RNA sequence: GGGUAUACGGUGGAUGCCUUGGUACCAGUAGGCGAAGAAGGACGUGGUUAACUGCGAUAAGCCUCGGGGAGCCGUAAGCAGGCUGUGAUCCGGGGAUCUCCCAAUGGGGAAACCCACCCGAGCAAACCUCGGGUAUCCUGGUCUGAAUCCAUAGGACCAGGAGGCGACACGGGGGGAAUUGAAACAUCUUAGUACCCCCAGGAAGAGAAAGUAAUAACGAUUCCCUAAGUAGCGGCGAGCGAACGGGGAAGAGCCCAAACGCAGGAGGUGUGAUAGCCGGCAGGCGUUGCCUCUUGCGGGUUGUGGGGCCUGAUAGGUCUCUGCUGCCGCAGAGACAGAGAGUUACCAAAUCAUUGGUUAGCCAAAGUGAGCUUGGAAAACUCCACCCAAGCGGGUGAUAGUCCCUUAGGCGAAAGCUAAUGAUCUCUCCUUCAGGUUCCCGAGUAGCACGGGUUAAGGGAAGUCCUGUGUGAAGCUGGGAGGACCACCUCCCAAGGCUAAAUACUAACUGGUGACCGAUAGUGCACUAGUACCGUGAGGGAAAGGUGAAAAGUACCCCGGGAGGGGAGUGAAAUAGUACCUGAAACCGUGUACCUACAA
Number, nucleotide and partner (000 for none) at each position: 001g596002g595003g594004u593005a592006u591007a590008c589009g588010g587011u000012g000013g000014a000015u000016g581017c546018c545019u000020u000021g517022g516023u514024a513025c512026c511027a510028g509029u508030a506031g505032g165033c164034g000035a000036a000037g000038a000039a000040g101041g100042a099043c056044g055045u054046g000047g000048u000049u000050a000051a000052c000053u000054g045055c044056g043057a000058u000059a000060a000061g000062c095063c094064u093065c092066g091067g090068g089069g000070a000071g083072c082073c081074g000075u000076a000077a000078g000079c000080a000081g073082g072083c071084u000085g000086u000087g000088a000089u068090c067091c066092g065093g064094g063095g062096a000097u000098c000099u042100c041101c040102c000103a000104a000105u000106g115107g114108g113109g000110a000111a000112a000113c108114c107115c106116a134117c133118c132119c131120g130121a129122g128123c000124a000125a000126a000127c000128c122129u121130c120131g119132g118133g117134u116135a000136u162137c161138c160139u159140g158141g157142u156143c155144u154145g000146a000147a000148u000149c000150c000151a000152u000153a000154g144155g143156a142157c141158c140159a139160g138161g137162a136163g000164g033165c032166g000167a000168c000169a000170c201171g199172g198173g197174g196175g195176g000177a000178a000179u000180u000181g188182a187183a000184a000185c000186a000187u182188c181189u000190u000191a000192g000193u000194a000195c175196c174197c173198c172199c171200a000201g170202g000203a000204a000205g000206a000207g000208a000209a000210a000211g218212u217213a000214a000215u000216a000217a212218c211219g000220a000221u502222u249223c248224c247225c246226u245227a000228a000229g000230u000231a000232g240233c239234g000235g000236c000237g000238a000239g233240c232241g000242a000243a000244c000245g226246g225247g224248g223249a222250a000251g000252a499253g498254c497255c496256c000257a000258a000259a000260c298261g297262c296263a295264g294265g293266a292267g291268g290269u289270g288271u000272g000273a000274u000275a000276g000277c000278c000279g000280g000281c000282a000283g000284g000285c000286g000287u000288u270289g269290c268291c267292u266293c265294u264295u263296g262297c261298g260299g000300g000301u000302u000303g000304u000305g441306g440307g439308g000309c000310c435311u434312g433313a432314u000315a000316g000317g000318u000319c000320u000321c000322u000323g000324c000325u000326g000327c000328c000329g000330c000331a000332g000333a000334g000335a000336c000337a000338g000339a000340g000341a000342g000343u000344u000345a000346c000347c000348a426349a000350a424351u423352c422353a421354u420355u419356g418357g417358u416359u415360a000361g411362c410363c409364a000365a000366a000367g384368u000369g383370a382371g381372c000373u380374u000375g000376g000377a000378a000379a000380a373381c371382u370383c369384c367385a000386c000387c391388c000389a000390a000391g387392c000393g405394g404395g403396u000397g000398a000399u000400a000401g000402u000403c395404c394405c393406u000407u000408a000409g363410g362411c361412g000413a000414a000415a359416g358417c357418u356419a355420a354421u353422g352423a351424u350425c000426u348427c000428u000429c000430c000431u000432u313433c312434a311435g310436g000437u000438u000439c307440c306441c305442g000443a000444g000445u000446a000447g471448c470449a469450c468451g467452g466453g465454u000455u463456a000457a000458g000459g000460g000461a000462a000463g455464u000465c453466c452467u451468g450469u449470g448471u447472g000473a000474a000475g000476c000477u000478g493479g492480g491481a490482g489483g000484a000485c000486c000487a000488c000489c482490u481491c480492c479493c478494a000495a000496g255497g254498c253499u252500a000501a000502a221503u000504a000505c031506u030507a000508a029509c028510u027511g026512g025513u024514g023515a000516c022517c021518g000519a000520u000521a000522g000523u000524g000525c000526a000527c000528u000529a000530g000531u000532a000533c540534c539535g000536u000537g000538a000539g534540g533541g000542a000543a000544a000545g018546g017547u000548g000549a000550a000551a000552a000553g000554u000555a000556c567557c566558c565559c564560g000561g000562g000563a000564g559565g558566g557567g556568a000569g000570u000571g000572a000573a000574a000575u000576a000577g000578u000579a000580c000581c016582u000583g000584a000585a000586a000587c010588c009589g008590u007591g006592u005593a004594c003595c002596u001597a000598c000599a000600a000
RNA: Bacterial large subunit ribosomal RNA, nucleotides 15 to 614